A member of the RNA family "mir-16 microRNA precursor family" from Chrysemys picta, 84 nucleotides long.

RNA sequence: GGCACCUUUAAGACUAACAGAAGUAUUGGAGCAUAAGCUUUCAAAAGCUUAUGCUCCAAUACUUCUGUUAGUCUUAAAGGUGCC
Dot-bracket structure: (((.(((...((((((((.(.((((((((..........................)))))))))..))))))))...))).)))
Numbered sequence: 001g002g003c004a005c006c007u008u009u010a011a012g013a014c015u016a017a018c019a020g021a022a023g024u025a026u027u028g029g030a031g032c033a034u035a036a037g038c039u040u041u042c043a044a045a046a047g048c049u050u051a052u053g054c055u056c057c058a059a060u061a062c063u064u065c066u067g068u069u070a071g072u073c074u075u076a077a078a079g080g081u082g083c084c
Stems, first nucleotide, its partner, number of pairs: 001084003005080003011074008020064001022063008
For this family Rfam cites "Structural Basis for pri-miRNA Recognition by Drosha" (Jin et al., Mol Cell, 2020).